[Rfam]
Small nucleolar RNA SNORA73 family: a 205-nucleotide RNA from Brachypteracias leptosomus.
The family is grouped with related families in Rfam's "snR30-U17 clan".
From the family's description: U17 (SNORA73A and SNORA73B) also known as E1 belongs to the H/ACA class of small nucleolar RNAs (snoRNAs). Vertebrate U17 is intron-encoded and ranges in length from 200-230 nucleotides, longer than most snoRNAs.
Pairs were carried over by alignment from the consensus structure, which is taken from published work.
Lineage of the source: Eukaryota > Craniata > Sarcopterygii > Coraciimorphae > Brachypteracias.
A search with the family's covariance model found it, with a score of 183 bits.
RNA sequence: CCAACGUGGAUAUCCGGAGAAGUCGCUCUCUCUUGGCUCUGUCCGUGUGGCGCAGGGGAGCGUAGGCCCUCGGGCCCAUGACGUAUAGUCCCGUUCCACGACGUUGGAGAUCAAGCCGGGCCUCGAGUCUGCAGCCUGCAUAUUCCUACUGCUUCUCUGAGCCCUCGGGCGGUGACAGAGGAGAUAAACCAUGCAGGAAACAUCU
Number, nucleotide and partner (000 for none) at each position: 001c107002c106003a105004a104005c103006g102007u101008g044009g043010a042011u041012a040013u000014c036015c035016g034017g000018a029019g028020a027021a000022g000023u000024c000025g000026c000027u020028c019029u018030c000031u000032c000033u000034u016035g015036g014037c000038u000039c000040u012041g011042u010043c009044c008045g000046u000047g099048u098049g097050g096051c000052g000053c000054a000055g000056g092057g091058g090059a089060g086061c000062g084063u083064a000065g000066g079067c000068c000069c000070u000071c000072g000073g000074g000075c000076c000077c000078a000079u066080g000081a000082c000083g063084u062085a000086u060087a000088g000089u059090c058091c057092c056093g000094u000095u000096c050097c049098a048099c047100g000101a007102c006103g005104u004105u003106g002107g001108a000109g000110a000111u000112c000113a000114a000115g000116c000117c000118g000119g000120g000121c000122c000123u000124c000125g000126a000127g000128u000129c000130u000131g000132c000133a000134g000135c197136c196137u195138g194139c193140a192141u191142a000143u000144u000145c000146c000147u000148a000149c000150u000151g000152c183153u182154u181155c180156u179157c178158u000159g000160a000161g170162c169163c168164c000165u000166c000167g000168g163169g162170c161171g000172g000173u000174g000175a000176c000177a000178g157179a156180g155181g154182a153183g152184a000185u000186a000187a000188a000189c000190c000191a141192u140193g139194c138195a137196g136197g135198a000199a000200a000201c000202a000203u000204c000205u000